[Rfam]
RNA sequence: UUGGAAGGGCGGAGGAUCGCUUUCGGCGCAAGCUGGAGGAGGAAAGUCCGAACUCCGUAGGGCUCGAUGCCGCGUAACCUUUGCUUUCGGGCAUUGGAUACACGCGGGAGGCGUGGUCGAAAGACCUGCCGAUGGAAAGUGCCACAGAAACUUAAACCGCCGUCAGCUUCGGCUGACGGUAAGGGUGAAAAGGCGGGGUAAAAGCCCACCGCUCCAAGAGAAAUCGAGGAGGCACGGAAAACCCCAUCGGGUGCAAGGCCAAAUAGGAAACCGAGGAGCUGCCCGCUCCGCGUUCCGCGCAAGCGGAGCAGGUUUCGGGUAUUGGCUGCUCAGACAAAUGAUUCUCUCCGUUCGAAAGAACGCAGACAAAAUUCGGCUUACAGCCCUUCCAAAAUC
Numbered sequence: 001u002u003g004g005a006a007g008g009g010c011g012g013a014g015g016a017u018c019g020c021u022u023u024c025g026g027c028g029c030a031a032g033c034u035g036g037a038g039g040a041g042g043a044a045a046g047u048c049c050g051a052a053c054u055c056c057g058u059a060g061g062g063c064u065c066g067a068u069g070c071c072g073c074g075u076a077a078c079c080u081u082u083g084c085u086u087u088c089g090g091g092c093a094u095u096g097g098a099u100a101c102a103c104g105c106g107g108g109a110g111g112c113g114u115g116g117u118c119g120a121a122a123g124a125c126c127u128g129c130c131g132a133u134g135g136a137a138a139g140u141g142c143c144a145c146a147g148a149a150a151c152u153u154a155a156a157c158c159g160c161c162g163u164c165a166g167c168u169u170c171g172g173c174u175g176a177c178g179g180u181a182a183g184g185g186u187g188a189a190a191a192g193g194c195g196g197g198g199u200a201a202a203a204g205c206c207c208a209c210c211g212c213u214c215c216a217a218g219a220g221a222a223a224u225c226g227a228g229g230a231g232g233c234a235c236g237g238a239a240a241a242c243c244c245c246a247u248c249g250g251g252u253g254c255a256a257g258g259c260c261a262a263a264u265a266g267g268a269a270a271c272c273g274a275g276g277a278g279c280u281g282c283c284c285g286c287u288c289c290g291c292g293u294u295c296c297g298c299g300c301a302a303g304c305g306g307a308g309c310a311g312g313u314u315u316c317g318g319g320u321a322u323u324g325g326c327u328g329c330u331c332a333g334a335c336a337a338a339u340g341a342u343u344c345u346c347u348c349c350g351u352u353c354g355a356a357a358g359a360a361c362g363c364a365g366a367c368a369a370a371a372u373u374c375g376g377c378u379u380a381c382a383g384c385c386c387u388u389c390c391a392a393a394a395u396c
Stems, first nucleotide, its partner, number of pairs: 001392010011381001012346007020039008044379003048376005053253001055251002062300002065249005070107005108133001110130003134244002139242002142237002157184002159180009192210002195207003211233001212231004218225002257327004267316006293307003